[Rfam]
RNA sequence: UCACUCUGGUUUCCCUUCAAAACGUAUAAAUCUUUCGCCUUUUACUAAAGAUUUCCGUGGAUGGGAACAAGUUAACGAGUCUUUAGACUAAUUUUUUGUUUGCCCUGCCUUCGAGGCG
Numbered sequence: 001u002c003a004c005u006c007u008g009g010u011u012u013c014c015c016u017u018c019a020a021a022a023c024g025u026a027u028a029a030a031u032c033u034u035u036c037g038c039c040u041u042u043u044a045c046u047a048a049a050g051a052u053u054u055c056c057g058u059g060g061a062u063g064g065g066a067a068c069a070a071g072u073u074a075a076c077g078a079g080u081c082u083u084u085a086g087a088c089u090a091a092u093u094u095u096u097u098g099u100u101u102g103c104c105c106u107g108c109c110u111u112c113g114a115g116g117c118g
Stems, first nucleotide, its partner, number of pairs: 003080004009068006016061004028054008100118001102117003106113002

A member of the RNA family "U5 spliceosomal RNA" from Actinia tenebrosa, 118 nucleotides long. For this family Rfam cites "The spliceosomal snRNAs of Caenorhabditis elegans" (Thomas et al., Nucleic Acids Res, 1990). It is annotated as a spliceosomal small nuclear RNA. A search with the family's covariance model found it, with a score of 92 bits. Taxonomically the source falls in Actinia (Eukaryota, Opisthokonta, Metazoa, Eumetazoa). The family's consensus secondary structure is taken from published work. U5 RNA is a component of both types of known spliceosome.